[Rfam]
RNA sequence: UAUGUAUUAAGUAGAACAUUUCUUCAUAGACCAGACCAUGGAAACCAAGUGUGUGGAAAUGCUUCUGCUACAUGUUUA
Numbered sequence: 001u002a003u004g005u006a007u008u009a010a011g012u013a014g015a016a017c018a019u020u021u022c023u024u025c026a027u028a029g030a031c032c033a034g035a036c037c038a039u040g041g042a043a044a045c046c047a048a049g050u051g052u053g054u055g056g057a058a059a060u061g062c063u064u065c066u067g068c069u070a071c072a073u074g075u076u077u078a
Stems, first nucleotide, its partner, number of pairs: 001078002004075004010069007017061007025053004031049001
The record is a 78-nucleotide RNA sequence from Pteropus alecto, which matches "mir-147 microRNA precursor family" in Rfam.